[Rfam]
RNA: Guanidine-II riboswitch aptamer (mini-ykkC)
Nucleotides: 049
Base pairs, nucleotide, nucleotide: 004017005016006015007014008013036049037048038047039046040045
Number, partner (000 for none) and nucleotide at each position: 001000c002000g003000c004017g005016c006015g007014g008013g009000a010000c011000g012000a013008c014007c015006c016005g017004c018000a019000g020000c021000a022000g023000c024000g025000u026000c027000c028000a029000g030000a031000a032000c033000u034000u035000c036049g037048c038047a039046g040045g041000a042000c043000g044000a045040c046039c047038u048037g049036c